[Rfam]
RNA sequence: CAGCAAGAAAAAUUAGGGUUUUUUGGGACAGCUAUGUUUUAUCUUCACAAGUCAUAAUGCCCCUAAAAAUCCCUAUUUCUCAUGCA
Number, nucleotide and partner (000 for none) at each position: 001c000002a000003g000004c000005a000006a000007g000008a000009a000010a000011a000012a000013u000014u000015a074016g073017g072018g071019u000020u068021u067022u066023u000024u000025g063026g062027g061028a000029c059030a058031g000032c000033u056034a055035u054036g053037u000038u000039u000040u000041a000042u000043c000044u000045u000046c000047a000048c000049a000050a000051g000052u000053c036054a035055u034056a033057a000058u030059g029060c000061c027062c026063c025064u000065a000066a022067a021068a020069a000070u000071c018072c017073c016074u015075a000076u000077u000078u000079c000080u000081c000082a000083u000084g000085c000086a000
RNA: mir-365 microRNA precursor family